[Rfam]
RNA sequence: GCGUGUCGCGUAGGGAGCGCCCUUGCCCACUAACCCUAAUGGCACCCGCGCUCCCACCACCCGCCCGCUGUUUUUUUCGCUGACUUUCAGCGGGUGAGGGGAGCGACCCGGGAGGGGAGGGAAAAGGGGAGGGGGUCCGGCAGUAAAAAACGUCAGCGAGGGAGCUCCCACCGCGGUGCGCCCUGGGGUCCCCACCCCACAGCUCGGGGCGCUCCCGCCGCCGCGAGGAGGCCGCGGUCGGCCGGCCCAGCGCCACUGCCGCCGCGAAGAGCUCGUCUCUGUCAGCCUCGGUGGCGGUCCCCCCGUCCCGGGCAGCCGCGGGGCCCCAGCAAAGCAAAACGGGAUCGGCGCCUGGGGGCUGAGCCCCCCGCGGCUCCCUCCGCCGUGGGGUGCGCGGCCGGCGCCUGUCCCAACACCC
Numbered sequence: 001g002c003g004u005g006u007c008g009c010g011u012a013g014g015g016a017g018c019g020c021c022c023u024u025g026c027c028c029a030c031u032a033a034c035c036c037u038a039a040u041g042g043c044a045c046c047c048g049c050g051c052u053c054c055c056a057c058c059a060c061c062c063g064c065c066c067g068c069u070g071u072u073u074u075u076u077u078c079g080c081u082g083a084c085u086u087u088c089a090g091c092g093g094g095u096g097a098g099g100g101g102a103g104c105g106a107c108c109c110g111g112g113a114g115g116g117g118a119g120g121g122a123a124a125a126g127g128g129g130a131g132g133g134g135g136u137c138c139g140g141c142a143g144u145a146a147a148a149a150a151c152g153u154c155a156g157c158g159a160g161g162g163a164g165c166u167c168c169c170a171c172c173g174c175g176g177u178g179c180g181c182c183c184u185g186g187g188g189u190c191c192c193c194a195c196c197c198c199a200c201a202g203c204u205c206g207g208g209g210c211g212c213u214c215c216c217g218c219c220g221c222c223g224c225g226a227g228g229a230g231g232c233c234g235c236g237g238u239c240g241g242c243c244g245g246c247c248c249a250g251c252g253c254c255a256c257u258g259c260c261g262c263c264g265c266g267a268a269g270a271g272c273u274c275g276u277c278u279c280u281g282u283c284a285g286c287c288u289c290g291g292u293g294g295c296g297g298u299c300c301c302c303c304c305g306u307c308c309c310g311g312g313c314a315g316c317c318g319c320g321g322g323g324c325c326c327c328a329g330c331a332a333a334g335c336a337a338a339a340c341g342g343g344a345u346c347g348g349c350g351c352c353u354g355g356g357g358g359c360u361g362a363g364c365c366c367c368c369c370g371c372g373g374c375u376c377c378c379u380c381c382g383c384c385g386u387g388g389g390g391u392g393c394g395c396g397g398c399c400g401g402c403g404c405c406u407g408u409c410c411c412a413a414c415a416c417c418c
Stems, first nucleotide, its partner, number of pairs: 002180009013169003017165002020162002050104005062096009079157006085150003183329007203312009215297009233266005239261004244254003268280004342410004347405006368397005375390004
RNA: Vertebrate telomerase RNA
Organism: Sakesphorus luctuosus